[Rfam]
mir-9198 microRNA precursor family: a 79-nucleotide RNA from Myotis lucifugus. The family's consensus secondary structure was predicted with RNAalifold. Lineage of the source: Eukaryota > Eutheria > Boreoeutheria > Yangochiroptera > Myotis.
RNA sequence: GCUGCCGCUCGUACCCACUGCUGGCGCCUGGCGCCGGUCCCAAUCGCAUGGCGCCAUCAGUGGGUGCGAGCGGCGGCUG
Numbered sequence: 001g002c003u004g005c006c007g008c009u010c011g012u013a014c015c016c017a018c019u020g021c022u023g024g025c026g027c028c029u030g031g032c033g034c035c036g037g038u039c040c041c042a043a044u045c046g047c048a049u050g051g052c053g054c055c056a057u058c059a060g061u062g063g064g065u066g067c068g069a070g071c072g073g074c075g076g077c078u079g
Stems, first nucleotide, its partner, number of pairs: 004074017022056007